[Rfam]
RNA sequence: GUCUGUUUACCUUUGGGACCUGACAGCUGUGGCGUGCUCCCGUUGUAGCCAUGGAGGGAAGGGUCUUUUUAUUUAUUGGAAAAGCUGAUAACCUUUGUUUAGUAUCAGAGUCUGACUUGCACAAGCAAGAUUC
Numbered sequence: 001g002u003c004u005g006u007u008u009a010c011c012u013u014u015g016g017g018a019c020c021u022g023a024c025a026g027c028u029g030u031g032g033c034g035u036g037c038u039c040c041c042g043u044u045g046u047a048g049c050c051a052u053g054g055a056g057g058g059a060a061g062g063g064u065c066u067u068u069u070u071a072u073u074u075a076u077u078g079g080a081a082a083a084g085c086u087g088a089u090a091a092c093c094u095u096u097g098u099u100u101a102g103u104a105u106c107a108g109a110g111u112c113u114g115a116c117u118u119g120c121a122c123a124a125g126c127a128a129g130a131u132u133c
Stems, first nucleotide, its partner, number of pairs: 002055005015041004021034002024031001070130001072128002076124003079120001081118002085108003090103001

Small nucleolar RNA SNORA24: a 133-nucleotide sequence from Rattus norvegicus.
Rfam classes the family as an H/ACA-box small nucleolar RNA.
Pairs were carried over by alignment from the consensus structure, which was predicted with RNAfold.
A search with the family's covariance model found it, with a score of 89 bits.